[Rfam]
RNA: MIR2619 microRNA precursor family
Organism: Medicago truncatula
RNA sequence: AAACAACCCCCUAUGUAUUGGAUCUUUGGCAAUUUUGGCCCCCAAGGCCACUUUUGACUUAGUCUUCGCUGACGUGACACCCACAUCCCUUAAGUGAGGUGCCACAUGUCGACCAUUGUGGGUGCCACGUUAGCGAAGACUAAAUCAAAAGUGGCAUUGGGGGCCAAAACUGUCAAAGAUCCAAUAUAUAGGGGGCUGUUU
Numbered sequence: 001a002a003a004c005a006a007c008c009c010c011c012u013a014u015g016u017a018u019u020g021g022a023u024c025u026u027u028g029g030c031a032a033u034u035u036u037g038g039c040c041c042c043c044a045a046g047g048c049c050a051c052u053u054u055u056g057a058c059u060u061a062g063u064c065u066u067c068g069c070u071g072a073c074g075u076g077a078c079a080c081c082c083a084c085a086u087c088c089c090u091u092a093a094g095u096g097a098g099g100u101g102c103c104a105c106a107u108g109u110c111g112a113c114c115a116u117u118g119u120g121g122g123u124g125c126c127a128c129g130u131u132a133g134c135g136a137a138g139a140c141u142a143a144a145u146c147a148a149a150a151g152u153g154g155c156a157u158u159g160g161g162g163g164c165c166a167a168a169a170c171u172g173u174c175a176a177a178g179a180u181c182c183a184a185u186a187u188a189u190a191g192g193g194g195g196c197u198g199u200u201u
Stems, first nucleotide, its partner, number of pairs: 001201002004198002007195002012190020033169013072130002075127002078124008